[Rfam]
RNA: Small nucleolar RNA snoR77
RNA sequence: AGGCAGCCCCUUUGUCCGAUUCCAAUGGCAAUGGAGGUGUUGCGUUGCUCGGAGAACAAACCUUCUGCUCUUCAGAUCGGCUGAGGGUGGAGUUCGCCUCCCCUCGUUGAGGCUGGUCUAGUAGUCUUAAGAACAAC
Numbered sequence: 001a002g003g004c005a006g007c008c009c010c011u012u013u014g015u016c017c018g019a020u021u022c023c024a025a026u027g028g029c030a031a032u033g034g035a036g037g038u039g040u041u042g043c044g045u046u047g048c049u050c051g052g053a054g055a056a057c058a059a060a061c062c063u064u065c066u067g068c069u070c071u072u073c074a075g076a077u078c079g080g081c082u083g084a085g086g087g088u089g090g091a092g093u094u095c096g097c098c099u100c101c102c103c104u105c106g107u108u109g110a111g112g113c114u115g116g117u118c119u120a121g122u123a124g125u126c127u128u129a130a131g132a133a134c135a136a137c
Base pairs, nucleotide, nucleotide: 002041003040004039005038007037008036009034010033012031013030014029015028016027062131063130064129067126069124074119075118076117077116078115080113081112082111085105086104087103